[Rfam]
RNA sequence: CAGGCAAAACCACACUCAAGCCUUUGCGCCUACGUCGACAGAUAGGGGGCACUGGCCGCAGCCGCGAGCUGCCAGGGUGCAGAAAGAAAUGACUGCAUCUCCCAUUUGGAAAGGUGUUCCGGUGACCCAAUU
Number, nucleotide and partner (000 for none) at each position: 001c000002a000003g126004g000005c000006a123007a000008a000009a000010c000011c000012a117013c116014a115015c114016u000017c113018a000019a000020g056021c055022c054023u000024u000025u051026g050027c049028g000029c047030c046031u000032a000033c000034g043035u042036c041037g000038a000039c000040a000041g036042a035043u034044a000045g000046g030047g029048g000049g027050c026051a025052c000053u000054g022055g021056c020057c000058g072059c071060a070061g069062c068063c000064g000065c000066g000067a000068g062069c061070u060071g059072c058073c000074a000075g100076g099077g098078u097079g096080c095081a094082g093083a000084a000085a090086g000087a000088a000089a000090u085091g000092a000093c082094u081095g080096c079097a078098u077099c076100u075101c109102c108103c000104a000105u000106u000107u000108g102109g101110a000111a000112a000113g017114g015115u014116g013117u012118u000119c000120c000121g000122g000123u006124g000125a000126c003127c000128c000129a000130a000131u000132u000
Overview:
This 132-nucleotide RNA sequence from Pantoea alhagi belongs to the Rfam family "Molybdenum/Tungsten riboswitch aptamer (Moco RNA motif)". A reference for the family is Regulski et al. (2008), "in molybdenum cofactor and tungsten cofactor metabolism", Mol Microbiol. The source organism's lineage runs through Bacteria, Pseudomonadati, Pseudomonadota, Gammaproteobacteria and Pantoea. It scores 84 bits against the family's covariance model.